[Rfam]
RNA sequence: GCGUGCCGAUGAUGAUUAAAAGAGCUAACAAUGGUGAAUUCGAUGAAUGUGCUUGCGUGCCGCUGGGUUCGCAGCUGUGGUGAUAUGUAUCCUUACGCAGAGGCACGC
Dot-bracket structure: .((((((..............................................................................................)))))).
RNA: Small nucleolar RNA Z188